[Rfam]
Nucleotides: 097
Base pairs, nucleotide, nucleotide: 001097002096003095004094005093006092007091013083014081016090017089018088019087020086021085022084023082025079026078027077028076029075
Number, partner (000 for none) and nucleotide at each position: 001097g002096g003095c004094u005093g006092c007091a008000a009000c010000a011000a012000c013083c014081c015000c016090g017089u018088g019087a020086g021085u022084g023082g024000u025079u026078u027077u028076u029075u030000c031000c032000u033000g034000g035000u036000u037000u038000u039000u040000g041000g042000a043000u044000u045000u046000u047000u048000u049000c050000c051000g052000g053000u054000u055000u056000c057000a058000g059000g060000g061000g062000a063000g064000a065000a066000a067000u068000c069000c070000a071000g072000a073000c074000c075029a076028a077027a078026a079025a080000g081014g082023c083013g084022c085021a086020u087019u088018c089017a090016c091007u092006g093005c094004a095003g096002c097001c

The record is a 97-nucleotide RNA, which matches "nadA riboswitch" in Rfam. By type it is a small RNA. A reference for the family is Chen et al. (2020), "Structural distinctions between NAD+ riboswitch domains 1 and 2 determine differential folding and ligand binding", Nucleic Acids Res. It is one of the family's seed sequences.